RNA sequence: GUCCUGGCUGGAGCGGAGGAACCAACCUUUGGGGCUUAUCUCAGGGCGAGUCGCUAUCGCUAGAGAGGGGGAUCUCUCACCCCUAGCCCGUCAGCUAACUCCGUAGGCGUUGGGAGAGAACUG
Numbered sequence: 001g002u003c004c005u006g007g008c009u010g011g012a013g014c015g016g017a018g019g020a021a022c023c024a025a026c027c028u029u030u031g032g033g034g035c036u037u038a039u040c041u042c043a044g045g046g047c048g049a050g051u052c053g054c055u056a057u058c059g060c061u062a063g064a065g066a067g068g069g070g071g072a073u074c075u076c077u078c079a080c081c082c083c084u085a086g087c088c089c090g091u092c093a094g095c096u097a098a099c100u101c102c103g104u105a106g107g108c109g110u111u112g113g114g115a116g117a118g119a120a121c122u123g
Base pairs, nucleotide, nucleotide: 002012003011004010013104014103015102016101017100018099023031024030032089033088034087040065041064042063068083069082070081071080
RNA: c-di-AMP riboswitch aptamer (ydaO/yuaA leader)